[Rfam]
Nucleotides: 097
Stems, first nucleotide, its partner, number of pairs: 001095008015038004040079003044074001047073003053066002
Number, partner (000 for none) and nucleotide at each position: 001095u002094g003093a004092c005091u006090c007089u008088g009000g010000a011000g012000a013000g014000c015038u016037c017036c018035u019000a020000c021000c022000g023000u024000u025000u026000g027000g028000g029000c030000g031000g032000u033000g034000c035018a036017g037016g038015a039000c040079a041078c042077c043000a044074a045000a046000g047073g048072g049071g050000a051000a052000g053066c054065u055000u056000c057000a058000u059000a060000a061000g062000g063000g064000a065054a066053g067000u068000c069000a070000u071049c072048u073047c074044u075000c076000a077042g078041g079040u080000u081000a082000a083000a084000a085000g086000g087000a088008c089007a090006g091005a092004g093003u094002u095001a096000u097000a